Source information:
This 92-nucleotide RNA from Oxobacter pfennigii belongs to the Rfam family "THF (Tetrahydrofolate) riboswitch aptamer". Rfam's curators write: Tetrahydrofolate (THF) riboswitch was first reported for Ames et al. as an RNA motif in 5' untranslated (5'-UTR)regions of folate transport and biosynthesis genes in Firmicutes genomes. The organism belongs to Oxobacter, within Bacteria. Gene Ontology term of the family: tetrahydrofolate metabolic process.

[Rfam]
RNA sequence: GGCAGAGUAGGUAUUGUGCGUCAAGUGUUAGAGGAUGGGAAGUCGUCUCUAAACGAAAGGUUGACCUGCGAUACAAUACCGCGUCCGCUGUU
Numbered sequence: 001g002g003c004a005g006a007g008u009a010g011g012u013a014u015u016g017u018g019c020g021u022c023a024a025g026u027g028u029u030a031g032a033g034g035a036u037g038g039g040a041a042g043u044c045g046u047c048u049c050u051a052a053a054c055g056a057a058a059g060g061u062u063g064a065c066c067u068g069c070g071a072u073a074c075a076a077u078a079c080c081g082c083g084u085c086c087g088c089u090g091u092u
Stems, first nucleotide, its partner, number of pairs: 001092005010080009019070003025054002028052007038086003042082001058067003